[Rfam]
RNA sequence: CCUGGCAUCGGUACAUCCAUUGGCCCGGAUGAUCCAGUGCGGAUGACAGGAUAAUUUAAUAAAAACAGCUGCCUACUGGAUAAGGAAGCUGCAAUCCCGGAAUGGAGGAAACUCCUACAGGACUGCGGUUAGAUUUCUAUUACCUUUUUGCAGCUGACCA
Number, nucleotide and partner (000 for none) at each position: 001c050002c049003u048004g047005g000006c000007a044008u043009c042010g000011g040012u039013a038014c031015a030016u029017c028018c027019a000020u000021u000022g000023g000024c000025c000026c000027g018028g017029a016030u015031g014032a081033u080034c079035c078036a077037g076038u013039g012040c011041g000042g009043a008044u007045g000046a000047c004048a003049g002050g001051a000052u000053a000054a000055u000056u000057u000058a000059a000060u000061a000062a000063a000064a000065a000066c156067a155068g154069c153070u152071g151072c150073c000074u000075a000076c037077u036078g035079g034080a033081u032082a000083a000084g000085g000086a000087a000088g129089c128090u127091g126092c125093a000094a000095u000096c000097c000098c000099g000100g000101a000102a000103u000104g115105g114106a113107g000108g000109a000110a000111a000112c000113u106114c105115c104116u000117a000118c000119a000120g000121g000122a000123c000124u000125g092126c091127g090128g089129u088130u000131a000132g000133a000134u000135u000136u000137c000138u000139a000140u000141u000142a000143c000144c000145u000146u000147u000148u000149u000150g072151c071152a070153g069154c068155u067156g066157a000158c000159c000160a000
RNA: DUF2800 RNA